[Rfam]
The family of this 46-nucleotide sequence from Felis catus is "Histone 3' UTR stem-loop". On this family, see Williams and Marzluff, Nucleic Acids Res 1995: "The sequence of the stem and flanking sequences at the 3' end of histone mRNA are critical determinants for the binding of the stem-loop binding protein".
RNA sequence: CUAAAGGCUCUUUUCAGAGCCACACAAUUAAGCUUAUGCAAGGGCU
Numbered sequence: 001c002u003a004a005a006g007g008c009u010c011u012u013u014u015c016a017g018a019g020c021c022a023c024a025c026a027a028u029u030a031a032g033c034u035u036a037u038g039c040a041a042g043g044g045c046u
Stems, first nucleotide, its partner, number of pairs: 006021006
Its family is annotated with mRNA 3'-end processing by stem-loop binding and cleavage in the Gene Ontology.
Taxonomically the source falls in Felis (Eukaryota, Opisthokonta, Bilateria, Euteleostomi).